Mammalian CPEB3 ribozyme: a 73-nucleotide RNA from Crocodylus porosus. The base pairs follow the family's consensus structure, which is taken from published work. Taxonomically the source falls in Crocodylus (Eukaryota, Metazoa, Bilateria, Chordata). Gene Ontology term of the family: RNA nuclease activity. The mammalian CPEB3 ribozyme is a self cleaving RNA located in the second intron of the CPEB3 gene which belongs to a family of genes regulating messenger RNA polyadenylation. This ribozyme is highly conserved and found only in mammals. The CPEB3 ribozyme is structurally and biochemically related to the human hepatitis delta virus (HDV) ribozyme and the HDV ribozyme is proposed to have arisen from the human transcriptome. It scores 42 bits against the family's covariance model.

RNA sequence: CCAUAAACACCAGGGGUCAUAACAGAAGUAUCCACAUAGUGAUCCCUGUCAGGUAAUACCUGGAGAUUCUGCU
Numbered sequence: 001c002c003a004u005a006a007a008c009a010c011c012a013g014g015g016g017u018c019a020u021a022a023c024a025g026a027a028g029u030a031u032c033c034a035c036a037u038a039g040u041g042a043u044c045c046c047u048g049u050c051a052g053g054u055a056a057u058a059c060c061u062g063g064a065g066a067u068u069c070u071g072c073u
Stems, first nucleotide, its partner, number of pairs: 013046006021073001023071005028040002050062005